Shown here is a 61-nucleotide sequence from Microcystis aeruginosa, a member of the family "Plastid-psbN 5UTR RNA". Taxonomically the source falls in Microcystis aeruginosa (Bacteria, Oscillatoriophycideae, Chroococcales, Microcystaceae). The match comes from Rfam's covariance-model search (51 bits). Plastid psbN is a non-coding RNA (ncRNA) recognised in plastids. It was reported as a conserved 11 stem-loop in the prime untranslated region (5UTR) of psbN genes. It has been reported that the motif is retained in a subset of mature transcripts in barley, which can suggests a possible role in transcript alternative 5 prime processing.
RNA sequence: AAACACUCCCAUCAGCAAGGUAGUUCCCCAACCGGGAGAAACUUUACCAUAUUCCGAAUUG
Numbered sequence: 001a002a003a004c005a006c007u008c009c010c011a012u013c014a015g016c017a018a019g020g021u022a023g024u025u026c027c028c029c030a031a032c033c034g035g036g037a038g039a040a041a042c043u044u045u046a047c048c049a050u051a052u053u054c055c056g057a058a059u060u061g
Base pairs, nucleotide, nucleotide: 017045018044019043020042021041024038025037026036027035

The base pairs follow the family's consensus structure, which was predicted with LocARNA.